[Rfam]
This 115-nucleotide sequence from Nocardioides sp. S5 belongs to the Rfam family "SAM (S-adenosyl methionine) riboswitch aptamer".
RNA sequence: GCUCAAGAGUGAGACCGACAAGCCCUGGCUAGGUCUCCGGCAACCUGCUUCCGCAGCAAGGUGCUCCAGGGAUAAGAGACGGGCGACCACGACCGUGGCCGUCAAACUGCGGAGA
Numbered sequence: 001g002c003u004c005a006a007g008a009g010u011g012a013g014a015c016c017g018a019c020a021a022g023c024c025c026u027g028g029c030u031a032g033g034u035c036u037c038c039g040g041c042a043a044c045c046u047g048c049u050u051c052c053g054c055a056g057c058a059a060g061g062u063g064c065u066c067c068a069g070g071g072a073u074a075a076g077a078g079a080c081g082g083g084c085g086a087c088c089a090c091g092a093c094c095g096u097g098g099c100c101g102u103c104a105a106a107c108u109g110c111g112g113a114g115a
Stems, first nucleotide, its partner, number of pairs: 002078003009038001011037006021030002039065003044061003048056002082103004087098004

NCBI's taxonomy places the organism under Bacteria, Bacillati, Actinomycetota, Actinomycetes, Nocardioides.
About the family: SAM-IV is a mRNA element that regulates gene expression via direct sensing of S-adenosylmethionine (SAM or AdoMet). SAM-IV riboswitches share conserved nucleotide positions with the previously described SAM-I riboswitches sequence analysis and molecular recognition experiments suggest that SAM-I and SAM-IV riboswitches share similar ligand binding sites, but have different scaffolds.